mir-490 microRNA precursor family: a 95-nucleotide sequence from Ornithorhynchus anatinus.
The base pairs follow the family's consensus structure, which was predicted with RNAalifold.
The sequence is in the family's curated seed alignment.
On this family, see Bentwich et al., Nat Genet 2005: "Identification of hundreds of conserved and nonconserved human microRNAs".
RNA sequence: UGGAAAGUUCACGGUUCGACGCCAUGGAUCUCCAGGUGGGUCAAGGUUAGAGACGCACCAACCUGGAGGACUCCAUGCUGUCGAGCUGAUCACGA
Numbered sequence: 001u002g003g004a005a006a007g008u009u010c011a012c013g014g015u016u017c018g019a020c021g022c023c024a025u026g027g028a029u030c031u032c033c034a035g036g037u038g039g040g041u042c043a044a045g046g047u048u049a050g051a052g053a054c055g056c057a058c059c060a061a062c063c064u065g066g067a068g069g070a071c072u073c074c075a076u077g078c079u080g081u082c083g084a085g086c087u088g089a090u091c092a093c094g095a
Stems, first nucleotide, its partner, number of pairs: 016084006023077006029069009039059003